[Rfam]
About this RNA: Rfam assigns this 73-nucleotide RNA sequence from Rhodobacteraceae bacterium HTCC2083 to the family "Singlet oxygen resistance RNA X". About the family: SorX (RSs2461)like SorY is a singlet oxygen induced sRNA that counteracts oxidative stress by targeting mRNA for a transporter in Rhodobacter. It also has an impact on resistance against organic hydroperoxides. The pairing is the family consensus, mapped onto this sequence. A search with the family's covariance model found it, with a score of 60 bits. Rfam 15.1 lists 528 matches to the family in 356 species. The literature on the family includes a 2009 paper in Mol Microbiol by Berghoff et al., "Photooxidative stress-induced and abundant small RNAs in Rhodobacter sphaeroides". Lineage of the source: Bacteria > Pseudomonadati > Pseudomonadota > Rhodobacterales > Paracoccaceae.
RNA sequence: ACACCGCGUAUAUCCGGUUUAUGAUAUACACUCCCCUGUUGGACUGGCCCGGGCUAAGCCCCGGGUCUUUUUU
Numbered sequence: 001a002c003a004c005c006g007c008g009u010a011u012a013u014c015c016g017g018u019u020u021a022u023g024a025u026a027u028a029c030a031c032u033c034c035c036c037u038g039u040u041g042g043a044c045u046g047g048c049c050c051g052g053g054c055u056a057a058g059c060c061c062c063g064g065g066u067c068u069u070u071u072u073u
Stems, first nucleotide, its partner, number of pairs: 008029007046067008